A member of the RNA family "Nitrogen stress-induced RNA 1" from Oscillatoria sp. FACHB-1406, 60 nucleotides long.
RNA sequence: AGGUAGAUGCACCCUGAUUUGCCUUCCCCGCCUCGCCCCUUAGAGUCGGGGAGUUUUUUU
Numbered sequence: 001a002g003g004u005a006g007a008u009g010c011a012c013c014c015u016g017a018u019u020u021g022c023c024u025u026c027c028c029c030g031c032c033u034c035g036c037c038c039c040u041u042a043g044a045g046u047c048g049g050g051g052a053g054u055u056u057u058u059u060u
Stems, first nucleotide, its partner, number of pairs: 002013003025052006032045003
The source organism's lineage runs through Bacteria, Cyanobacteriota, Oscillatoriales, Oscillatoriaceae and Oscillatoria. It scores 52 bits against the family's covariance model. For this family Rfam cites "Heterocyst-specific transcription of NsiR1, a non-coding RNA encoded in a tandem array of direct repeats in cyanobacteria" (Ionescu et al., J Mol Biol, 2010).